[Rfam]
RNA: Ribosomal protein L20 leader
RNA sequence: AAAACAAAGUAGAAGUUUCCGCUUCUCACCUUACAGCAAAGGCUUAUAGGGUUAAUAUUUACGAUUUAAUCAGCGUUUUAUAUGCUUUUUAUGUAGUGUAAUAUAGCGGAUAGUUUUACUAUCCGUUUUUGUUUUUUUAA
Numbered sequence: 001a002a003a004a005c006a007a008a009g010u011a012g013a014a015g016u017u018u019c020c021g022c023u024u025c026u027c028a029c030c031u032u033a034c035a036g037c038a039a040a041g042g043c044u045u046a047u048a049g050g051g052u053u054a055a056u057a058u059u060u061a062c063g064a065u066u067u068a069a070u071c072a073g074c075g076u077u078u079u080a081u082a083u084g085c086u087u088u089u090u091a092u093g094u095a096g097u098g099u100a101a102u103a104u105a106g107c108g109g110a111u112a113g114u115u116u117u118a119c120u121a122u123c124c125g126u127u128u129u130u131g132u133u134u135u136u137u138u139a140a
Stems, first nucleotide, its partner, number of pairs: 011026006028052003033047001035045001036043002105127010